A member of the RNA family "Streptococcus sRNA SpF59 (ldcC RNA)", 52 nucleotides long. The sequence is in the family's curated seed alignment.

[Rfam]
RNA sequence: UGACCACCCGGAGACGGGUCGAGGCUACACGGACGGCCGGGUCAGAUGCCGA
Numbered sequence: 001u002g003a004c005c006a007c008c009c010g011g012a013g014a015c016g017g018g019u020c021g022a023g024g025c026u027a028c029a030c031g032g033a034c035g036g037c038c039g040g041g042u043c044a045g046a047u048g049c050c051g052a
Base pairs, nucleotide, nucleotide: 001044002043003042004041005040006019007018008017009016010015